[Rfam]
RNA: Cyano-2 RNA
RNA sequence: GGCAGCACCGGGAGAGCGACCUGGUAGCUGGCAGACAAAGCCCCCAUGGCACGAGCGAUUGUCAUGGGGAGCUUUCUGCGUUCUUCAGAUCUCCGAAAAGAGUUGGUGCAUUCGCACUAAAGCUGUGUAUUGCGACGAACUUGUUUGCAGCGGAUACCGCAUCGCUCGGGGAGAACGGCGUUCUCCUCGCGGUUCCGUGGUCCCG
Number, nucleotide and partner (000 for none) at each position: 001g000002g000003c030004a029005g028006c027007a025008c024009c023010g022011g021012g020013a000014g000015a000016g000017c000018g000019a000020c012021c011022u010023g009024g008025u007026a000027g006028c005029u004030g003031g079032c078033a077034g076035a075036c000037a073038a000039a000040g000041c000042c069043c068044c067045c066046a065047u064048g063049g062050c061051a060052c000053g000054a000055g000056c000057g000058a000059u000060u051061g050062u049063c048064a047065u046066g045067g044068g043069g042070a000071g000072c000073u037074u000075u035076c034077u033078g032079c031080g000081u000082u000083c000084u000085u000086c000087a000088g000089a000090u000091c000092u000093c000094c000095g000096a000097a000098a000099a000100g000101a000102g000103u000104u000105g000106g000107u000108g000109c000110a000111u000112u000113c000114g000115c000116a000117c000118u000119a000120a000121a000122g000123c000124u000125g000126u000127g000128u000129a000130u000131u000132g000133c000134g000135a000136c000137g000138a000139a000140c000141u000142u000143g000144u000145u000146u000147g000148c000149a000150g198151c197152g196153g195154a194155u000156a193157c192158c191159g190160c189161a000162u000163c000164g000165c000166u000167c000168g188169g187170g186171g185172a184173g183174a182175a181176c000177g000178g000179c000180g000181u175182u174183c173184u172185c171186c170187u169188c168189g160190c159191g158192g157193u156194u154195c153196c152197g151198u150199g000200g000201u000202c000203c000204c000205g000